[Rfam]
RNA sequence: UUUUUAUGAUGAAUAAAAAAAAAUGUAAGUAGGGACAUGAGAAUAUAAAUAUGUUCAUCUUCAUUUUGUCUGAAAAAA
Numbered sequence: 001u002u003u004u005u006a007u008g009a010u011g012a013a014u015a016a017a018a019a020a021a022a023a024u025g026u027a028a029g030u031a032g033g034g035a036c037a038u039g040a041g042a043a044u045a046u047a048a049a050u051a052u053g054u055u056c057a058u059c060u061u062c063a064u065u066u067u068g069u070c071u072g073a074a075a076a077a078a
Stems, first nucleotide, its partner, number of pairs: 001078004
RNA: small nucleolar RNA snoR22
Organism: Plasmodium relictum